Rfam assigns this 67-nucleotide RNA sequence from Kurthia sp. 11kri321 to the family "Bacillaceae-1 RNA".
Nucleotides: 067
Stems, first nucleotide, its partner, number of pairs: 011049007026038004054066004
Number, partner (000 for none) and nucleotide at each position: 001000a002000u003000u004000u005000a006000a007000g008000g009000a010000g011049g012048a013047u014046u015045g016044c017043c018000a019000a020000a021000g022000u023000a024000c025000a026038c027037g028036a029035c030000a031000u032000c033000c034000u035029g036028u037027c038026g039000c040000a041000a042000a043017g044016g045015c046014a047013a048012u049011c050000c051000g052000c053000a054066u055065c056064g057063c058000a059000u060000c061000c062000a063057g064056c065055g066054a067000c
Description:
The family's RNA type in Rfam is small RNA. A search with the family's covariance model found it, with a score of 50 bits. The base pairs follow the family's consensus structure, which is taken from published work.